[Rfam]
RNA sequence: UUCCUAACAGUUCUCUGAUUUACAUCCUCCGCAAGGAAGUAUCGUGGUCAGAACUUAACCCUAAGUAAUUG
Numbered sequence: 001u002u003c004c005u006a007a008c009a010g011u012u013c014u015c016u017g018a019u020u021u022a023c024a025u026c027c028u029c030c031g032c033a034a035g036g037a038a039g040u041a042u043c044g045u046g047g048u049c050a051g052a053a054c055u056u057a058a059c060c061c062u063a064a065g066u067a068a069u070u071g
Stems, first nucleotide, its partner, number of pairs: 009055003015051006
RNA: Ascomycota telomerase RNA, nucleotides 207 to 277